This 58-nucleotide RNA sequence from Leifsonia sp. Leaf336 belongs to the Rfam family "msiK RNA".
RNA sequence: CGUCUAUUCCAUUCACAACGGAUCGUCCGGCACGUACCUGCCGGUGAAGGAGACAAAA
Numbered sequence: 001c002g003u004c005u006a007u008u009c010c011a012u013u014c015a016c017a018a019c020g021g022a023u024c025g026u027c028c029g030g031c032a033c034g035u036a037c038c039u040g041c042c043g044g045u046g047a048a049g050g051a052g053a054c055a056a057a058a
Stems, first nucleotide, its partner, number of pairs: 009050002012048004027044006

The source organism's lineage runs through Bacteria, Bacillati, Micrococcales, Microbacteriaceae and Leifsonia.